[Rfam]
RNA: Streptococcus sRNA SpF01
RNA sequence: UCUUUAUGGGGUUAAGGGCUGUAAAGCCUUGAUAUUAGGCACUUUGGGGCAUCAUCCCAAGGUGCUUUUUUAGAAUUU
Numbered sequence: 001u002c003u004u005u006a007u008g009g010g011g012u013u014a015a016g017g018g019c020u021g022u023a024a025a026g027c028c029u030u031g032a033u034a035u036u037a038g039g040c041a042c043u044u045u046g047g048g049g050c051a052u053c054a055u056c057c058c059a060a061g062g063u064g065c066u067u068u069u070u071u072a073g074a075a076u077u078u
Base pairs, nucleotide, nucleotide: 017078018077029074032071037067038066039065040064041063042062043061046058047057048056049055